Shown here is a 59-nucleotide sequence from Planktothricoides sp. SR001, a member of the family "Nitrogen stress-induced RNA 1". For this family Rfam cites "Heterocyst-specific transcription of NsiR1, a non-coding RNA encoded in a tandem array of direct repeats in cyanobacteria" (Ionescu et al., J Mol Biol, 2010). By type it is a small RNA. The match comes from Rfam's covariance-model search (60 bits). NCBI's taxonomy places the organism under Bacteria, Cyanophyceae, Oscillatoriophycideae, Oscillatoriaceae, Planktothricoides. The base pairs follow the family's consensus structure.
[Rfam]
RNA sequence: UGGUAGAUGCACCCUGAUUGACAUUUCCCGGCUUGCGAGUCAAGCUGGGAUUUUUUUCU
Number, nucleotide and partner (000 for none) at each position: 001u000002g013003g012004u011005a000006g000007a000008u000009g000010c000011a004012c003013c002014c000015u000016g000017a000018u000019u000020g000021a000022c000023a000024u000025u000026u050027c049028c048029c047030g046031g045032c044033u043034u042035g041036c000037g000038a000039g000040u000041c035042a034043a033044g032045c031046u030047g029048g028049g027050a026051u000052u000053u000054u000055u000056u000057u000058c000059u000